RNA sequence: CUAAAUGAAAAUACUAAAUCACACACAUAUCGACACAUUCUUCGGGGUGCCCCUAACCGGGUCGAAGAUAUGGGAUAUGUGGAGGUCUAAC
Dot-bracket structure: .......................((((((((....(((..((((....((((......))))))))...))).))))))))..........